[Rfam]
RNA: SAH (S-adenosyl-L-homocysteine) riboswitch aptamer
RNA sequence: CUUCCCAAGGAGCGUUGCAGCGAAACCCGGUUUCGUCAGGCUUGGGUAAUCAAGGUGUUGGCCGUGUCUUGGCGGUCUGAAGCUUUUUUGCAACGACGCUCACCUUGA
Numbered sequence: 001c002u003u004c005c006c007a008a009g010g011a012g013c014g015u016u017g018c019a020g021c022g023a024a025a026c027c028c029g030g031u032u033u034c035g036u037c038a039g040g041c042u043u044g045g046g047u048a049a050u051c052a053a054g055g056u057g058u059u060g061g062c063c064g065u066g067u068c069u070u071g072g073c074g075g076u077c078u079g080a081a082g083c084u085u086u087u088u089u090g091c092a093a094c095g096a097c098g099c100u101c102a103c104c105u106u107g108a
Stems, first nucleotide, its partner, number of pairs: 002048001004046005021035006